[Rfam]
RNA: 6A RNA
RNA sequence: GAUUCUACUCGUAGAGCACGAGUAGGGUAAAAUAAAAAAAGCUCAAUAGAU
Numbered sequence: 001g002a003u004u005c006u007a008c009u010c011g012u013a014g015a016g017c018a019c020g021a022g023u024a025g026g027g028u029a030a031a032a033u034a035a036a037a038a039a040a041g042c043u044c045a046a047u048a049g050a051u
Stems, first nucleotide, its partner, number of pairs: 006024006014044004